[Rfam]
RNA sequence: AGACAGCGCCGCGCCCCUCUCCUCCUCCCUGGGGCAACGCGUUGAAGAGCCGUCGCAUUCACCUCCUCCCGGAUGUGCACGGUUCGGAACAUGGCGGCGGCCCCCUCCUCCUCCCUGGGGUCGCCGCUUUUU
Numbered sequence: 001a002g003a004c005a006g007c008g009c010c011g012c013g014c015c016c017c018u019c020u021c022c023u024c025c026u027c028c029c030u031g032g033g034g035c036a037a038c039g040c041g042u043u044g045a046a047g048a049g050c051c052g053u054c055g056c057a058u059u060c061a062c063c064u065c066c067u068c069c070c071g072g073a074u075g076u077g078c079a080c081g082g083u084u085c086g087g088a089a090c091a092u093g094g095c096g097g098c099g100g101c102c103c104c105c106u107c108c109u110c111c112u113c114c115c116u117g118g119g120g121u122c123g124c125c126g127c128u129u130u131u132u
Stems, first nucleotide, its partner, number of pairs: 007041003013035005047085007056077003094127011
Source information:
The family of this 132-nucleotide RNA from Tranquillimonas rosea is "Alphaproteobacterial ar14". Rfam classes the family as a small RNA. Rfam's curators write: Smr14C2 was renamed NfeR1 (Nodule Formation Efficiency RNA) highly expressed in salt stress and during the symbiotic interaction on legume roots. For this family Rfam cites "A survey of sRNA families in alpha-proteobacteria" (del Val et al., RNA Biol, 2012). The source organism's lineage runs through Bacteria, Pseudomonadota, Rhodobacterales, Roseobacteraceae and Tranquillimonas.